[Rfam]
RNA sequence: AUUGAAUAGGUUCUUUUUACUCAUAUAACCCUGAUAAUUGGUUUGGGGGUUUCUACGAGGCAACCGGAAUUGCUUCUCUAUGAGCCAGGUAAGGCUUAUA
Numbered sequence: 001a002u003u004g005a006a007u008a009g010g011u012u013c014u015u016u017u018u019a020c021u022c023a024u025a026u027a028a029c030c031c032u033g034a035u036a037a038u039u040g041g042u043u044u045g046g047g048g049g050u051u052u053c054u055a056c057g058a059g060g061c062a063a064c065c066g067g068a069a070u071u072g073c074u075u076c077u078c079u080a081u082g083a084g085c086c087a088g089g090u091a092a093g094g095c096u097u098a099u100a
Stems, first nucleotide, its partner, number of pairs: 020084006029048006057076007